[Rfam]
Nucleotides: 054
Stems, first nucleotide, its partner, number of pairs: 013043001014041003020036005
Number, partner (000 for none) and nucleotide at each position: 001000u002000g003000c004000a005000u006000u007000c008000a009000c010000u011000a012000c013043u014041g015040u016039a017000a018000g019000u020036c021035g022034c023033u024032c025000c026000g027000g028000a029000u030000a031000a032024g033023a034022g035021u036020g037000u038000c039016u040015g041014c042000u043013g044000a045000a046000u047000g048000a049000c050000u051000a052000a053000a054000a
A member of the RNA family "UnaL2 LINE 3' element" from Salmo trutta, 54 nucleotides long. Rfam describes the family as follows. The eel long interspersed element (LINE) UnaL2 and its partner short interspersed element (SINE) share a conserved 3' tail containing a stem-loop that is critical for their retrotransposition.